[Rfam]
The family of this 70-nucleotide sequence from Stutzerimonas stutzeri is "narK RNA". Rfam's curators put it in the seed alignment. The source organism's lineage runs through Bacteria, Pseudomonadota, Gammaproteobacteria, Pseudomonadales and Stutzerimonas stutzeri.
RNA sequence: GGCACGCUAGCUGCUUCGCUCCCGGCACGGCAGGCCAACGGCGGUCUCCACAAAAAGACAAAGGCGUCGC
Number, nucleotide and partner (000 for none) at each position: 001g000002g000003c000004a000005c000006g000007c000008u000009a000010g000011c000012u000013g000014c000015u000016u000017c000018g000019c000020u000021c000022c000023c000024g000025g000026c000027a000028c000029g049030g048031c000032a047033g046034g045035c044036c043037a000038a000039c000040g000041g000042c000043g036044g035045u034046c033047u032048c030049c029050a000051c000052a000053a000054a000055a000056a000057g000058a000059c000060a000061a000062a000063g000064g000065c000066g000067u000068c000069g000070c000